[Rfam]
RNA sequence: GUGCGGCGCCGGGCCCCUCUGGCGAGCGUGAUCGAGAGAUCGCCUCGUGAUGUCGGAGCUGCUCC
Numbered sequence: 001g002u003g004c005g006g007c008g009c010c011g012g013g014c015c016c017c018u019c020u021g022g023c024g025a026g027c028g029u030g031a032u033c034g035a036g037a038g039a040u041c042g043c044c045u046c047g048u049g050a051u052g053u054c055g056g057a058g059c060u061g062c063u064c065c
Stems, first nucleotide, its partner, number of pairs: 006059002009056004022048005027042002